This 115-nucleotide RNA from Okibacterium fritillariae belongs to the Rfam family "ZMP/ZTP riboswitch aptamer (pfl RNA motif)". The base pairs follow the family's consensus structure, which is taken from published work.

RNA sequence: UGGACCGGUCGCAACUGGCGUAGUGACGGAUCGUGAGCAGCUGGCGCAUCCGCCCGAGAUGGUUACCAUCGGGGAGCGACUGACACGGAUUCGGCCGCACGCCUGGGCCGAUACG
Numbered sequence: 001u002g003g004a005c006c007g008g009u010c011g012c013a014a015c016u017g018g019c020g021u022a023g024u025g026a027c028g029g030a031u032c033g034u035g036a037g038c039a040g041c042u043g044g045c046g047c048a049u050c051c052g053c054c055c056g057a058g059a060u061g062g063u064u065a066c067c068a069u070c071g072g073g074g075a076g077c078g079a080c081u082g083a084c085a086c087g088g089a090u091u092c093g094g095c096c097g098c099a100c101g102c103c104u105g106g107g108c109c110g111a112u113a114c115g
Stems, first nucleotide, its partner, number of pairs: 003084001005082001007081006015073002017103005059069004092110005